[Rfam]
RNA sequence: UGGCUUGCAGUGAUGACACUAUUGUGGACUAGAGUUUCUGAUUGGGGUUCUUCACCCUAGUUUGACGACAAACCCUUGACUGUCUGAGCUUUUUU
Numbered sequence: 001u002g003g004c005u006u007g008c009a010g011u012g013a014u015g016a017c018a019c020u021a022u023u024g025u026g027g028a029c030u031a032g033a034g035u036u037u038c039u040g041a042u043u044g045g046g047g048u049u050c051u052u053c054a055c056c057c058u059a060g061u062u063u064g065a066c067g068a069c070a071a072a073c074c075c076u077u078g079a080c081u082g083u084c085u086g087a088g089c090u091u092u093u094u095u
Stems, first nucleotide, its partner, number of pairs: 002094002007089002035067001037065002042060006
RNA: Small nucleolar RNA Z157/R69/R10
Organism: Papaver somniferum